SAM (S-adenosyl methionine) riboswitch aptamer: a 117-nucleotide sequence from Streptomyces hoynatensis. Lineage of the source: Bacteria > Bacillati > Actinomycetes > Kitasatosporales > Streptomyces. The base pairs follow the family's consensus structure, which is taken from published work. It scores 102 bits against the family's covariance model.

RNA sequence: GGUCACGAGUGACAGCUGAACGGGCCCCGGCCCGCUGUCCGGCAACCCUCCGUCGCGGUGGGGUGCCCCGGGUGAAGACCGGGUCGCGAGGCGCGCGCCUCGCGGCAAGUGCGGCCC
Number, nucleotide and partner (000 for none) at each position: 001g080002g079003u078004c077005a000006c000007g000008a000009g040010u000011g039012a038013c037014a036015g035016c034017u000018g000019a000020a000021c000022g000023g032024g031025c000026c000027c000028c000029g000030g000031c024032c023033c000034g016035c015036u014037g013038u012039c011040c009041g067042g066043c065044a000045a000046c063047c062048c061049u000050c058051c057052g000053u000054c000055g000056c000057g051058g050059u000060g000061g048062g047063g046064u000065g043066c042067c041068c000069c000070g000071g000072g000073u000074g000075a000076a000077g004078a003079c002080c001081g000082g000083g106084u105085c104086g103087c102088g101089a100090g099091g098092c097093g000094c000095g000096c000097g092098c091099c090100u089101c088102g087103c086104g085105g084106c083107a000108a000109g000110u000111g000112c000113g000114g000115c000116c000117c000